Shown here is a 133-nucleotide RNA sequence from Calditerricola satsumensis, a member of the family "FMN riboswitch aptamer (RFN element)". The family's consensus secondary structure is taken from published work.

RNA sequence: CCGUUCCUUCGGGGCCGGGUGGAAGUCCCGACCGGCGGUGAUGGCCCAGCGCCUCAGCCCGCGAGCCGCGCAAGCGGUUGAUCCGGUGCGAAUCCGGAGCCGACAGUGACAGUCUGGAUGGGAGAAGGAAUGG
Numbered sequence: 001c002c003g004u005u006c007c008u009u010c011g012g013g014g015c016c017g018g019g020u021g022g023a024a025g026u027c028c029c030g031a032c033c034g035g036c037g038g039u040g041a042u043g044g045c046c047c048a049g050c051g052c053c054u055c056a057g058c059c060c061g062c063g064a065g066c067c068g069c070g071c072a073a074g075c076g077g078u079u080g081a082u083c084c085g086g087u088g089c090g091a092a093u094c095c096g097g098a099g100c101c102g103a104c105a106g107u108g109a110c111a112g113u114c115u116g117g118a119u120g121g122g123a124g125a126a127g128g129a130a131u132g133g
Base pairs, nucleotide, nucleotide: 003131004130005129006128007127008126009125010124017029018028019027031113032112033102034101035062036061037060038059057100058099065078066077067076082098083097084096085095086094104116105115106114